Rfam assigns this 81-nucleotide sequence from Mastacembelus armatus to the family "mir-31 microRNA precursor family". The match comes from Rfam's covariance-model search (64 bits). Taxonomically the source falls in Mastacembelus (Eukaryota, Opisthokonta, Euteleosteomorpha, Anabantaria).
[Rfam]
RNA sequence: UCCAGGAAAGAAGGCAAGAUGUUGGCAAAGCUGUUGAGUUGAAAGACCUGCUAUGCCAACAAAUUGUCAUCUUUCUCUGCC
Dot-bracket structure: ....(((((((.(((((..((.(((((.(((..................))).))))).))..))))).))))))).....